Notes:
Shown here is a 96-nucleotide sequence from Triticum urartu, a member of the family "Small nucleolar RNA SNORD25". A reference for the family is Qu et al. (2001), "Identification of 10 novel snoRNA gene clusters from Arabidopsis thaliana", Nucleic Acids Res. It is annotated as a C/D-box small nucleolar RNA. The family is grouped with related families in Rfam's "SNORD25 clan". Rfam 15.1 lists 985 matches to the family in 241 species. A search with the family's covariance model found it, with a score of 68 bits.
[Rfam]
RNA sequence: GACAACCAUGAUGAGCCAAUUUUACAGUUACAGACCUGUGAUGACUCCUGUGGAAAUGAUCACAUGGUCAAAGAACAUCUAAGGGACUGAGUUGUC
Numbered sequence: 001g002a003c004a005a006c007c008a009u010g011a012u013g014a015g016c017c018a019a020u021u022u023u024a025c026a027g028u029u030a031c032a033g034a035c036c037u038g039u040g041a042u043g044a045c046u047c048c049u050g051u052g053g054a055a056a057u058g059a060u061c062a063c064a065u066g067g068u069c070a071a072a073g074a075a076c077a078u079c080u081a082a083g084g085g086a087c088u089g090a091g092u093u094g095u096c
Base pairs, nucleotide, nucleotide: 002095003094004093005092006091